Overview:
This 54-nucleotide sequence belongs to the Rfam family "Mu-gpT-DE RNA". The sequence is in the family's curated seed alignment.
RNA sequence: CCUUGACAGUCGGAUAAACUGACUGACAUUUGCCACGACAAGGAGAUUUACAUG
Number, nucleotide and partner (000 for none) at each position: 001c000002c042003u041004u040005g039006a000007c025008a024009g023010u022011c021012g000013g000014a000015u000016a000017a000018a000019c000020u000021g011022a010023c009024u008025g007026a000027c000028a000029u000030u000031u000032g000033c000034c000035a000036c000037g000038a000039c005040a004041a003042g002043g000044a000045g000046a000047u000048u000049u000050a000051c000052a000053u000054g000